The record is a 396-nucleotide RNA sequence from Bauldia litoralis, which matches "Bacterial RNase P class A" in Rfam. By type it is a ribozyme. The match comes from Rfam's covariance-model search (296 bits). Lineage of the source: Bacteria > Pseudomonadati > Hyphomicrobiales > Kaistiaceae > Bauldia.
RNA sequence: UCAGUUGGCUGGACGGCCGCUCCCGCACCGGUGGAAACGCCGCGGGAGAGGAAAGUCCGGGCUCCAUGGAAACACGGUGCCGGGUAACGCCCGGCGGGGGGCGACCCCAGGGAAAGUGCCACAGAAAGCAAACCGCCCGGCCGGCUUCGGCCAGCCGGGUAAGGGUGAAAGGGUGGGGUAAGAGCCCACCGCGGGACCGGCGACGGGACCGGCAUGGUAAACCCCACCGGGAGCAAAACCGAAUAGGGACGACGCGAGGUUCGCCUCAGGCCCGUUUCCGGGCCAGUCGUCCGGGUAGGUUGCGUGAGGCGUCCGGCAACGGGCGCCCAAGAUGAAUGGUCGUCACGCGGCGGAAACGUCGCCGUACAGAACCCGGCUUACAGGCCAACUGGCAUG
Numbered sequence: 001u002c003a004g005u006u007g008g009c010u011g012g013a014c015g016g017c018c019g020c021u022c023c024c025g026c027a028c029c030g031g032u033g034g035a036a037a038c039g040c041c042g043c044g045g046g047a048g049a050g051g052a053a054a055g056u057c058c059g060g061g062c063u064c065c066a067u068g069g070a071a072a073c074a075c076g077g078u079g080c081c082g083g084g085u086a087a088c089g090c091c092c093g094g095c096g097g098g099g100g101g102c103g104a105c106c107c108c109a110g111g112g113a114a115a116g117u118g119c120c121a122c123a124g125a126a127a128g129c130a131a132a133c134c135g136c137c138c139g140g141c142c143g144g145c146u147u148c149g150g151c152c153a154g155c156c157g158g159g160u161a162a163g164g165g166u167g168a169a170a171g172g173g174u175g176g177g178g179u180a181a182g183a184g185c186c187c188a189c190c191g192c193g194g195g196a197c198c199g200g201c202g203a204c205g206g207g208a209c210c211g212g213c214a215u216g217g218u219a220a221a222c223c224c225c226a227c228c229g230g231g232a233g234c235a236a237a238a239c240c241g242a243a244u245a246g247g248g249a250c251g252a253c254g255c256g257a258g259g260u261u262c263g264c265c266u267c268a269g270g271c272c273c274g275u276u277u278c279c280g281g282g283c284c285a286g287u288c289g290u291c292c293g294g295g296u297a298g299g300u301u302g303c304g305u306g307a308g309g310c311g312u313c314c315g316g317c318a319a320c321g322g323g324c325g326c327c328c329a330a331g332a333u334g335a336a337u338g339g340u341c342g343u344c345a346c347g348c349g350g351c352g353g354a355a356a357c358g359u360c361g362c363c364g365u366a367c368a369g370a371a372c373c374c375g376g377c378u379u380a381c382a383g384g385c386c387a388a389c390u391g392g393c394a395u396g
Base pairs, nucleotide, nucleotide: 001392002391003390004389005388006387007386008385009384010383011381012344013343014342015341016340017339018338020048021047022046023045024044025043026042053379054378055377057376058375059374060373061372062233063232064231065230071277072276075229076228077227078226079225080094081093082092083091084090095110096108097107098106099105111224112223116222117221118218119217120216133164134163135160136159137158138157139156140155141154143152144151145150172190173189174188175187176186177185191213192211193210194209197206198205199204237301238300239299240298247292248291249290250289251288252287269284270283271282272281273280308327309326310325311324312323313322314321315320